[Rfam]
Rfam assigns this 61-nucleotide RNA from Populus tomentosa to the family "Plastid-psbN 5UTR RNA". It scores 64 bits against the family's covariance model. The source organism's lineage runs through Eukaryota, Streptophyta, eudicotyledons, Saliceae and Populus. Plastid psbN is a non-coding RNA (ncRNA) recognised in plastids. It was reported as a conserved 11 stem-loop in the prime untranslated region (5UTR) of psbN genes.
RNA sequence: UGUGACACCCAUCAAAGGAGUAGUUUCCCACCUUGGAGCCGCUUUACCAUAUCUCGAAUUC
Numbered sequence: 001u002g003u004g005a006c007a008c009c010c011a012u013c014a015a016a017g018g019a020g021u022a023g024u025u026u027c028c029c030a031c032c033u034u035g036g037a038g039c040c041g042c043u044u045u046a047c048c049a050u051a052u053c054u055c056g057a058a059u060u061c
Base pairs, nucleotide, nucleotide: 017045018044019043020042021041023039024038025037026036027035